Rfam assigns this 108-nucleotide RNA from Halalkalibacter okhensis to the family "Glycine riboswitch aptamer". Gene Ontology term of the family: glycine biosynthetic process.

[Rfam]
RNA sequence: AUGAGAAUAAGGGGAGAGCUUGCGAAUGGUGCAACGCCGAAGGAGCAAGUAUUUAGAUAAUGUGUUAUCGAUACGAAUCUCUCAGGCAAAAAAGACUCUUAUUUGACG
Numbered sequence: 001a002u003g004a005g006a007a008u009a010a011g012g013g014g015a016g017a018g019c020u021u022g023c024g025a026a027u028g029g030u031g032c033a034a035c036g037c038c039g040a041a042g043g044a045g046c047a048a049g050u051a052u053u054u055a056g057a058u059a060a061u062g063u064g065u066u067a068u069c070g071a072u073a074c075g076a077a078u079c080u081c082u083c084a085g086g087c088a089a090a091a092a093a094g095a096c097u098c099u100u101a102u103u104u105g106a107c108g
Base pairs, nucleotide, nucleotide: 006103007102008101009100010099011098012097013096020034021033022032023031036087037086038085039083040082043081044080045079049074050073051072052071053070